RNA sequence: AGAGGUUACGAGUUUGAGGACCAAGCAGAAGCACUCAUGGUGUGUCCUGUCAGAUUCCAACGAAUCAGUGAAUUCUGCU
Numbered sequence: 001a002g003a004g005g006u007u008a009c010g011a012g013u014u015u016g017a018g019g020a021c022c023a024a025g026c027a028g029a030a031g032c033a034c035u036c037a038u039g040g041u042g043u044g045u046c047c048u049g050u051c052a053g054a055u056u057c058c059a060a061c062g063a064a065u066c067a068g069u070g071a072a073u074u075c076u077g078c079u
Base pairs, nucleotide, nucleotide: 018047019046020045021044024079025078026077027076028075029074030073031043032042033041051068053066054065055064056063057062

This 79-nucleotide sequence from Alligator sinensis belongs to the Rfam family "Mammalian CPEB3 ribozyme".
It scores 42 bits against the family's covariance model.
From the family's description: The mammalian CPEB3 ribozyme is a self cleaving RNA located in the second intron of the CPEB3 gene which belongs to a family of genes regulating messenger RNA polyadenylation.
Rfam links the family to the GO term RNA nuclease activity.